Shown here is a 76-nucleotide RNA from Anguilla anguilla, a member of the family "mir-30 microRNA precursor family". Gene Ontology terms of the family: gene silencing by miRNA and RISC complex. The organism belongs to Anguilla, within Eukaryota. Rfam 15.1 lists 3,879 matches to the family in 647 species. The family's consensus secondary structure was predicted with PFOLD.
[Rfam]
RNA sequence: GGGGCAGCUGUAAACAUCCUUGACUGGAUGCUGGUGCAGACGAUUGGGCUUUCAGUCAGAUGUUUGCGGCUGCAGA
Numbered sequence: 001g002g003g004g005c006a007g008c009u010g011u012a013a014a015c016a017u018c019c020u021u022g023a024c025u026g027g028a029u030g031c032u033g034g035u036g037c038a039g040a041c042g043a044u045u046g047g048g049c050u051u052u053c054a055g056u057c058a059g060a061u062g063u064u065u066g067c068g069g070c071u072g073c074a075g076a
Base pairs, nucleotide, nucleotide: 004073005072006071008069009068010067011066012065013064014063015062016061017060018059023056024055025054026053027052028051030049031048032047